Rfam assigns this 129-nucleotide RNA sequence from Mus musculus to the family "Small nucleolar RNA SNORA68". The family's consensus secondary structure was predicted with PFOLD. Rfam's curators write: U68 is a member of the H/ACA class of small nucleolar RNAs (snoRNAs) which act as guides in the the modification of uridines to pseudouridines. The organism belongs to Mus, within Eukaryota. The match comes from Rfam's covariance-model search (58 bits).
RNA sequence: CCCACACCCAAUCCAAGAACCUCUGCUGCCUGUAGCAGCCAUUAAACCGUGGUGUGCACAGCAAAGGGGCUUUGCUGCCUUUGGGAGGCUGUGUGGUGCCCGCAGAGUGGACUGGGUGGUUCCAUUGUC
Numbered sequence: 001c002c003c004a005c006a007c008c009c010a011a012u013c014c015a016a017g018a019a020c021c022u023c024u025g026c027u028g029c030c031u032g033u034a035g036c037a038g039c040c041a042u043u044a045a046a047c048c049g050u051g052g053u054g055u056g057c058a059c060a061g062c063a064a065a066g067g068g069g070c071u072u073u074g075c076u077g078c079c080u081u082u083g084g085g086a087g088g089c090u091g092u093g094u095g096g097u098g099c100c101c102g103c104a105g106a107g108u109g110g111a112c113u114g115g116g117u118g119g120u121u122c123c124a125u126u127g128u129c
Base pairs, nucleotide, nucleotide: 003056004055005054006053007052008051018043019042023038024037025036026035027034067122068121069120070119071118073116079107080106081105082104083103085101087100088099089098